[Rfam]
RNA sequence: CGGCGAGUUAGGCUGGGGUUAGCGGUCCCCGCACCGAAAACCCGCUAUACGUCGGGCCGAAGCUCUGGAGAGGAGUCUGGAACUGUCAGUCGACUCGGUUUCGCAGUGUAGACGCCUCGUCCCGCAGGGCCGCAGGUGGCGGAAUCUCGGUCGGAGGAUCGAGACAAACCGCCUUCAUCUGUCGAACCCGGUCAGGGACGGAAGUCCGCAGCCGUAGGCAGAACUGUGAGCGCUUGCGGGGUCGCGGGGCCGAGCUGCAGCCGAGUGUCGGACUGGCAGGAAAGGGCUCCCAUCCUGGGCGUGCUCGCCG
Numbered sequence: 001c002g003g004c005g006a007g008u009u010a011g012g013c014u015g016g017g018g019u020u021a022g023c024g025g026u027c028c029c030c031g032c033a034c035c036g037a038a039a040a041c042c043c044g045c046u047a048u049a050c051g052u053c054g055g056g057c058c059g060a061a062g063c064u065c066u067g068g069a070g071a072g073g074a075g076u077c078u079g080g081a082a083c084u085g086u087c088a089g090u091c092g093a094c095u096c097g098g099u100u101u102c103g104c105a106g107u108g109u110a111g112a113c114g115c116c117u118c119g120u121c122c123c124g125c126a127g128g129g130c131c132g133c134a135g136g137u138g139g140c141g142g143a144a145u146c147u148c149g150g151u152c153g154g155a156g157g158a159u160c161g162a163g164a165c166a167a168a169c170c171g172c173c174u175u176c177a178u179c180u181g182u183c184g185a186a187c188c189c190g191g192u193c194a195g196g197g198a199c200g201g202a203a204g205u206c207c208g209c210a211g212c213c214g215u216a217g218g219c220a221g222a223a224c225u226g227u228g229a230g231c232g233c234u235u236g237c238g239g240g241g242u243c244g245c246g247g248g249g250c251c252g253a254g255c256u257g258c259a260g261c262c263g264a265g266u267g268u269c270g271g272a273c274u275g276g277c278a279g280g281a282a283a284g285g286g287c288u289c290c291c292a293u294c295c296u297g298g299g300c301g302u303g304c305u306c307g308c309c310g
Stems, first nucleotide, its partner, number of pairs: 001310008011058003015030001017027003034055004062300004067295003072290005077284002083279009093266007103258005109252001114250007121240008129231002133226003136175001138173005145164008178222006189214004197206003
Rfam assigns this 310-nucleotide RNA from candidate division MSBL1 archaeon SCGC-AAA382A03 to the family "Archaeal signal recognition particle RNA". The organism belongs to candidate division MSBL1, within Archaea. Rfam links the family to the GO terms signal recognition particle, plasma membrane targeting and SRP-dependent cotranslational protein targeting to membrane, signal sequence recognition. The family's RNA type in Rfam is non-coding RNA gene. A search with the family's covariance model found it, with a score of 171 bits. The family's consensus secondary structure is taken from published work. Clan: SRP clan. For this family Rfam cites "Towards the structure of the mammalian signal recognition particle" (Wild et al., Curr Opin Struct Biol, 2002).